Description: This 163-nucleotide sequence from Succiniclasticum ruminis belongs to the Rfam family "DUF2800 RNA". Lineage of the source: Bacteria > Bacillati > Bacillota > Acidaminococcales > Succiniclasticum ruminis. It is annotated as a cis-regulatory element.
RNA sequence: CCGCUACAAGGUGCAUCACCUGAUCAACGAUGGCUCACACCUGGUAGCGGUCACAAAAACAUAUCGUAACAGCGAUUCGUUGAGCAGAAACGCUGCAUUUCUGGAACGGGGGGUUCCCCGACAGGACUGCGGUUAGGUUACUAAUGCCAUUUAUCGCUGUACA
Numbered sequence: 001c002c003g004c005u006a007c008a009a010g011g012u013g014c015a016u017c018a019c020c021u022g023a024u025c026a027a028c029g030a031u032g033g034c035u036c037a038c039a040c041c042u043g044g045u046a047g048c049g050g051u052c053a054c055a056a057a058a059a060c061a062u063a064u065c066g067u068a069a070c071a072g073c074g075a076u077u078c079g080u081u082g083a084g085c086a087g088a089a090a091c092g093c094u095g096c097a098u099u100u101c102u103g104g105a106a107c108g109g110g111g112g113g114u115u116c117c118c119c120g121a122c123a124g125g126a127c128u129g130c131g132g133u134u135a136g137g138u139u140a141c142u143a144a145u146g147c148c149a150u151u152u153a154u155c156g157c158u159g160u161a162c163a
Stems, first nucleotide, its partner, number of pairs: 001050005007044001009042005014032004033085005070159007092133005107120004